The record is a 131-nucleotide sequence from Streptomyces sp. SID2131, which matches "c-di-AMP riboswitch aptamer (ydaO/yuaA leader)" in Rfam. It scores 41 bits against the family's covariance model. The base pairs follow the family's consensus structure. Its family is annotated with cyclic-di-AMP binding and regulation of gene expression in the Gene Ontology.
RNA sequence: GAGCAGUACGGGCCGUACGCGCUGUUUCCGCAGCGGGGCCGGCCCUUGGGGUGAAGCCGCAGCCGCGGCCGGGCAUCUUCGCCUGCCCGAACCCGACAGGUCAUCCUUCACAGGCGGCUGACGAAGGGUUG
Numbered sequence: 001g002a003g004c005a006g007u008a009c010g011g012g013c014c015g016u017a018c019g020c021g022c023u024g025u026u027u028c029c030g031c032a033g034c035g036g037g038g039c040c041g042g043c044c045c046u047u048g049g050g051g052u053g054a055a056g057c058c059g060c061a062g063c064c065g066c067g068g069c070c071g072g073g074c075a076u077c078u079u080c081g082c083c084u085g086c087c088c089g090a091a092c093c094c095g096a097c098a099g100g101u102c103a104u105c106c107u108u109c110a111c112a113g114g115c116g117g118c119u120g121a122c123g124a125a126g127g128g129u130u131g
Stems, first nucleotide, its partner, number of pairs: 012115003019031002033111001035109004040048002049094003057068004071088004